[Rfam]
RNA sequence: UCACUGAGCACAACGUUACACCGUUUUGUUAGGAAAGUGAAGGUGGUCGGCGCACUUCUCCCUUUUUUGGGGUUUGUGUGUUUUACCGGCUUAUCUGAAAAGGGGCAACAGAGAACCUGGGAUGAUAUUCCAAAAAGAAA
Numbered sequence: 001u002c003a004c005u006g007a008g009c010a011c012a013a014c015g016u017u018a019c020a021c022c023g024u025u026u027u028g029u030u031a032g033g034a035a036a037g038u039g040a041a042g043g044u045g046g047u048c049g050g051c052g053c054a055c056u057u058c059u060c061c062c063u064u065u066u067u068u069g070g071g072g073u074u075u076g077u078g079u080g081u082u083u084u085a086c087c088g089g090c091u092u093a094u095c096u097g098a099a100a101a102g103g104g105g106c107a108a109c110a111g112a113g114a115a116c117c118u119g120g121g122a123u124g125a126u127a128u129u130c131c132a133a134a135a136a137g138a139a140a
Stems, first nucleotide, its partner, number of pairs: 004111001008106002010026001012024001014023002035096001117137002120131002
Rfam assigns this 140-nucleotide part of an RNA from Trypanosoma brucei to the family "Eukaryotic large subunit ribosomal RNA". Pairs were carried over by alignment from the consensus structure, which is taken from published work. Its Rfam clan is "LSU clan".